This 144-nucleotide RNA from Rattus norvegicus belongs to the Rfam family "Small nucleolar RNA SNORA48". A search with the family's covariance model found it, with a score of 66 bits. On this family, see Ofengand and Bakin, J Mol Biol 1997: "Mapping to nucleotide resolution of pseudouridine residues in large subunit ribosomal RNAs from representative eukaryotes, prokaryotes, archaebacteria, mitochondria and chloroplasts". From the family's description: The snoRNA ACA 48 has been identified to guide pseudouridylation of the residue U3797 in the 28S rRNA subunit. Rfam 15.1 lists 2,109 matches to the family in 150 species.

RNA sequence: ACCCCCUGGCAGUGGGCAAAGCGACACUUUGUUGGUGGUGGUGUCCUUAUUUCAAUCAGGGGCAGAGAGGAUGGCAGUCCCCUGUUCAUCCUAGCUUGAUGUCUGGCUUGGUGGCUAAAGCUGUUUUAUACCUAGGACUCAAAA
Numbered sequence: 001a002c003c004c005c006c007u008g009g010c011a012g013u014g015g016g017c018a019a020a021g022c023g024a025c026a027c028u029u030u031g032u033u034g035g036u037g038g039u040g041g042u043g044u045c046c047u048u049a050u051u052u053c054a055a056u057c058a059g060g061g062g063c064a065g066a067g068a069g070g071a072u073g074g075c076a077g078u079c080c081c082c083u084g085u086u087c088a089u090c091c092u093a094g095c096u097u098g099a100u101g102u103c104u105g106g107c108u109u110g111g112u113g114g115c116u117a118a119a120g121c122u123g124u125u126u127u128a129u130a131c132c133u134a135g136g137a138c139u140c141a142a143a144a
Stems, first nucleotide, its partner, number of pairs: 003062006013054003019048003023042001025040004084138004098132001100130001104128003109123002112120001